Shown here is a 102-nucleotide sequence from Priestia megaterium, a member of the family "Purine riboswitch aptamer".
RNA sequence: AUACAGCUAAGAUUACGAUCUUGUAUAUUAUCAGUAAUAUGGUCUGAUAGUCUCUACCUAGUAACCGUAAAAAACUAGACUACAAGAAAGUUUGGAUAUAAG
Numbered sequence: 001a002u003a004c005a006g007c008u009a010a011g012a013u014u015a016c017g018a019u020c021u022u023g024u025a026u027a028u029u030a031u032c033a034g035u036a037a038u039a040u041g042g043u044c045u046g047a048u049a050g051u052c053u054c055u056a057c058c059u060a061g062u063a064a065c066c067g068u069a070a071a072a073a074a075c076u077a078g079a080c081u082a083c084a085a086g087a088a089a090g091u092u093u094g095g096a097u098a099u100a101a102g
Stems, first nucleotide, its partner, number of pairs: 019087007029049006058078005
Dot-bracket structure: ..................(((((((...((((((.........))))))........(((((...........)))))..)))))))...............
Lineage of the source: Bacteria > Bacillati > Caryophanales > Priestia > Priestia megaterium. The match comes from Rfam's covariance-model search (82 bits).